A member of the RNA family "L31-Actinobacteria ribosomal protein leader" from Actinocrinis puniceicyclus, 40 nucleotides long.
The organism belongs to Actinocrinis, within Bacteria.
By type it is a cis-regulatory leader.
RNA sequence: UCGGUCCCGGUUCACGCCCCAGGCGGGCGAUCCGGCGGCC
Numbered sequence: 001u002c003g004g005u006c007c008c009g010g011u012u013c014a015c016g017c018c019c020c021a022g023g024c025g026g027g028c029g030a031u032c033c034g035g036c037g038g039c040c
Base pairs, nucleotide, nucleotide: 003040004039005038007035008034009033010032015029016028017027018026019025